A member of the RNA family "T-box leader" from an Erysipelotrichia bacterium, 210 nucleotides long. Uncharged tRNA acts as the effector for transcription antitermination of genes in the T-box leader family.
[Rfam]
RNA sequence: GCUAAUUCAAUGACAUGAUUUAAGGAUGAUUCGGUGGACAUGUAGAAAGUUUUGGGUCGAUGCAACAAAACCAAUCCAUCAUCGUAUAAGUCAUCAUGUGGAAGUAACACUGAACCUUCAGUAAGUGUUAACGUAGGACUGCGUUAAAGUCAUCGAGGGCAUCAACUGUGUUGAUGAACUAAGGUGGUACCGCGAGUCUUCGUCCUUAGA
Numbered sequence: 001g002c003u004a005a006u007u008c009a010a011u012g013a014c015a016u017g018a019u020u021u022a023a024g025g026a027u028g029a030u031u032c033g034g035u036g037g038a039c040a041u042g043u044a045g046a047a048a049g050u051u052u053u054g055g056g057u058c059g060a061u062g063c064a065a066c067a068a069a070a071c072c073a074a075u076c077c078a079u080c081a082u083c084g085u086a087u088a089a090g091u092c093a094u095c096a097u098g099u100g101g102a103a104g105u106a107a108c109a110c111u112g113a114a115c116c117u118u119c120a121g122u123a124a125g126u127g128u129u130a131a132c133g134u135a136g137g138a139c140u141g142c143g144u145u146a147a148a149g150u151c152a153u154c155g156a157g158g159g160c161a162u163c164a165a166c167u168g169u170g171u172u173g174a175u176g177a178a179c180u181a182a183g184g185u186g187g188u189a190c191c192g193c194g195a196g197u198c199u200u201c202g203u204c205c206u207u208a209g210a
Stems, first nucleotide, its partner, number of pairs: 007102002015097004023085001025083004035073002049071006105130007132143003160176007181207004192203004